[Rfam]
RNA sequence: GUGGGCUCACUGCACCUGGAUGCCGCCCCCAGGCAGGUACUUUUUCUGUCGGCCAGAGAAUCAGUUCAGGGAGCUGCGGCAGCUGUCACUUGCCAGGGGGAAAUGCCUCUUCCAGGGAGACAAGAGU
Number, nucleotide and partner (000 for none) at each position: 001g053002u052003g000004g050005g049006c048007u000008c000009a000010c000011u000012g040013c000014a038015c037016c036017u035018g034019g000020a000021u031022g030023c000024c000025g000026c000027c000028c000029c000030c022031a021032g000033g000034c018035a017036g016037g015038u014039a000040c012041u000042u000043u000044u000045u000046c000047u000048g006049u005050c004051g000052g002053c001054c000055a000056g000057a000058g000059a000060a000061u000062c000063a000064g000065u118066u117067c116068a000069g113070g112071g111072a000073g109074c000075u000076g106077c105078g104079g000080c000081a000082g000083c100084u099085g000086u000087c000088a000089c000090u000091u000092g000093c000094c000095a000096g000097g000098g000099g084100g083101a000102a000103a000104u078105g077106c076107c000108u000109c073110u000111u071112c070113c069114a000115g000116g067117g066118a065119g000120a000121c000122a000123a000124g000125a000126g000127u000
RNA: Small nucleolar RNA SNORA77